[Rfam]
Nucleotides: 067
Stems, first nucleotide, its partner, number of pairs: 011049001013047005025039005053067005
Number, partner (000 for none) and nucleotide at each position: 001000g002000a003000a004000a005000a006000a007000g008000g009000a010000a011049g012000c013047u014046c015045g016044a017043c018000u019000a020000a021000a022000a023000c024000c025039g026038c027037c028036g029035c030000g031000u032000c033000c034000u035029g036028c037027g038026g039025c040000a041000a042000c043017g044016u045015c046014g047013a048000a049011c050000g051000a052000c053067c054066c055065c056064a057063c058000a059000u060000c061000g062000u063057g064056u065055g066054g067053g

Rfam assigns this 67-nucleotide RNA from Pontibacillus chungwhensis to the family "Bacillaceae-1 RNA". Rfam classes the family as a small RNA. The match comes from Rfam's covariance-model search (67 bits).